[Rfam]
RNA: Lysine riboswitch aptamer
Organism: Pseudoalteromonas luteoviolacea
RNA sequence: AUAAACAGAAGAGGUGCGAUGCUGAGGUAGCUUGUUUGAGGACACGACAUCCGAAGACAACAAGCGAGGGUAGUAUUCGCCGAGGAAAGUAAUUGGUCGUGGCAAUGACUUUUCGGUUUUAGAGGUUGAAUCCUCUGAACUGUCACCGUUUUUGGUGGAGAGCUUCUGGCAGU
Numbered sequence: 001a002u003a004a005a006c007a008g009a010a011g012a013g014g015u016g017c018g019a020u021g022c023u024g025a026g027g028u029a030g031c032u033u034g035u036u037u038g039a040g041g042a043c044a045c046g047a048c049a050u051c052c053g054a055a056g057a058c059a060a061c062a063a064g065c066g067a068g069g070g071u072a073g074u075a076u077u078c079g080c081c082g083a084g085g086a087a088a089g090u091a092a093u094u095g096g097u098c099g100u101g102g103c104a105a106u107g108a109c110u111u112u113u114c115g116g117u118u119u120u121a122g123a124g125g126u127u128g129a130a131u132c133c134u135c136u137g138a139a140c141u142g143u144c145a146c147c148g149u150u151u152u153u154g155g156u157g158g159a160g161a162g163c164u165u166c167u168g169g170c171a172g173u
Stems, first nucleotide, its partner, number of pairs: 006168006016080004021074004030065007084114007092106004115141004120137006143158006